The family of this 84-nucleotide sequence from Peribacillus asahii is "c-di-GMP-I riboswitch aptamer". Its family is annotated with cyclic-di-GMP binding in the Gene Ontology. The family's consensus secondary structure is taken from published work. The source organism's lineage runs through Bacteria, Bacillati, Bacilli, Caryophanales and Peribacillus. A search with the family's covariance model found it, with a score of 75 bits. The literature on the family includes a 2008 paper in Science by Sudarsan et al., "Riboswitches in Eubacteria Sense the Second Messenger Cyclic Di-GMP".
[Rfam]
Nucleotides: 084
Base pairs, nucleotide, nucleotide: 012037013036017032018031021028022027040078041077042076043075045074046073047072048069049068050067055063056062057061
Number, partner (000 for none) and nucleotide at each position: 001000a002000a003000a004000a005000g006000a007000u008000a009000a010000a011000g012037g013036u014000a015000a016000a017032c018031c019000u020000c021028u022027c023000g024000a025000a026000a027022g028021a029000u030000u031018g032017g033000g034000a035000c036013a037012c038000a039000a040078a041077g042076c043075u044000c045074c046073a047072g048069g049068u050067c051000u052000a053000a054000g055063g056062u057061u058000u059000u060000a061057a062056a063055c064000u065000a066000u067050g068049a069048u070000g071000g072047c073046u074045g075043a076042g077041c078040u079000g080000c081000c082000u083000a084000a